The record is a 199-nucleotide sequence from Paraburkholderia megapolitana, which matches "FMN riboswitch aptamer (RFN element)" in Rfam. The source organism's lineage runs through Bacteria, Pseudomonadati, Pseudomonadota, Burkholderiaceae and Paraburkholderia.
[Rfam]
RNA sequence: GUGCGUCUUCAGGGCGGGGUGAAAUUCCCCACCGGCGGUAUGCCGGCAGCGCAGUCAUCACUGCGCGAGCCGACGAGCCCGCGAGCGCCCGUGUUGUUCUGUCUUGCGAAGCCUCACGGCAUCGUUAGACGAAACGGGGUCAGCAGAUCUGGUGCGAUGCCAGAGCCGACGGUCAUAGUCCGGAUGGAAGAAGAUGUGC
Numbered sequence: 001g002u003g004c005g006u007c008u009u010c011a012g013g014g015c016g017g018g019g020u021g022a023a024a025u026u027c028c029c030c031a032c033c034g035g036c037g038g039u040a041u042g043c044c045g046g047c048a049g050c051g052c053a054g055u056c057a058u059c060a061c062u063g064c065g066c067g068a069g070c071c072g073a074c075g076a077g078c079c080c081g082c083g084a085g086c087g088c089c090c091g092u093g094u095u096g097u098u099c100u101g102u103c104u105u106g107c108g109a110a111g112c113c114u115c116a117c118g119g120c121a122u123c124g125u126u127a128g129a130c131g132a133a134a135c136g137g138g139g140u141c142a143g144c145a146g147a148u149c150u151g152g153u154g155c156g157a158u159g160c161c162a163g164a165g166c167c168g169a170c171g172g173u174c175a176u177a178g179u180c181c182g183g184a185u186g187g188a189a190g191a192a193g194a195u196g197u198g199c
Stems, first nucleotide, its partner, number of pairs: 003197008017029003031179002033168002035082004085144002148164005170182003